[Rfam]
Record summary
Rfam assigns this 390-nucleotide RNA from Torulaspora globosa to the family "Small nucleolar RNA snR37". The organism belongs to Torulaspora, within Eukaryota. Its Rfam clan is "SNORA64 clan".
RNA sequence: AUCAUCAGUAGUGGUUAAUACUAUCUCAAGAUAAUAUUAAUUACAAAAUUAUAGAAACCUAAAGUUUCUUUCAUUUGUGUUCUUCCGCGUGAACACGACAAUGUACUUGGCUUGUCCUGGUCGUUGUUGUGUUUGCGCUAGUUAAUACUGGAACUCUGAAUGAUCGAUUCUAUAACAAUAACCCAUAGCUGAAUGGAUUUUGACCGGCUCCAAACAAGCCGGUUACAAUUUCCAUUUCGUUUCCGGUUUCUUAGAUCAUUAUCUUCUAUGAAGAGGCAUCUCGAGCGAGAGUUCUCUCGCUUGAGAUGAGGAGCACGUUUUCCAGAGAGUUGUGUAAUGCAACUUGAGAGUUUGGAUUCUUCAGUGCCUCUUCUUCAUGGUAGGACAUUG
Dot-bracket structure: .......((..(((((((((.((((....)))).)))))))..))..))...(((((((....(..((..(((((((.(((((...((((((.(((((((((...(..((....))..)...))))))))).)))))).(((....)))))))).).))))))..))..)....................(((((((..(((((((((.........))))))..)))..))))))).......)))))))...........((.((.((((((((((((((((((((((....)))))))))))))).((..(((....(((((((((((((.....))))))).....)))))).......))).)))))))))).)).)).......